[Rfam]
RNA sequence: UACUUAUCCAGAAAGACCGAGGGAUUGGCCCGAUGACGUCUUAGCAACCUAUUAUUGAUAAGGUGCUAAAUCCAACUUCUUCCCGAUACAGAAGACAGAUAAGAC
Numbered sequence: 001u002a003c004u005u006a007u008c009c010a011g012a013a014a015g016a017c018c019g020a021g022g023g024a025u026u027g028g029c030c031c032g033a034u035g036a037c038g039u040c041u042u043a044g045c046a047a048c049c050u051a052u053u054a055u056u057g058a059u060a061a062g063g064u065g066c067u068a069a070a071u072c073c074a075a076c077u078u079c080u081u082c083c084c085g086a087u088a089c090a091g092a093a094g095a096c097a098g099a100u101a102a103g104a105c
Base pairs, nucleotide, nucleotide: 003103004102005101006100007099008098013042014041015040016039017038021031022030023029025075026074027073028072043067044066045065046064048063049062050060051059052058053057071097076094077093078092079091080090